mir-14 microRNA precursor family: a 61-nucleotide RNA from Galleria mellonella. Rfam links the family to the GO terms RISC complex and miRNA-mediated post-transcriptional gene silencing. A reference for the family is Skalsky et al. (2010), "Identification of microRNAs expressed in two mosquito vectors, Aedes albopictus and Culex quinquefasciatus", BMC Genomics.
RNA sequence: UGUCGGGGGGAGAAAUUGACUUGACUUUUUUUUAGUAGUCAGUCUUUUUCUCUCUCCUAUA
Numbered sequence: 001u002g003u004c005g006g007g008g009g010g011a012g013a014a015a016u017u018g019a020c021u022u023g024a025c026u027u028u029u030u031u032u033u034a035g036u037a038g039u040c041a042g043u044c045u046u047u048u049u050c051u052c053u054c055u056c057c058u059a060u061a
Base pairs, nucleotide, nucleotide: 001061002060003059005057006056007055008054010052011051012050013049015047018044019043020042021041024039025038026037028035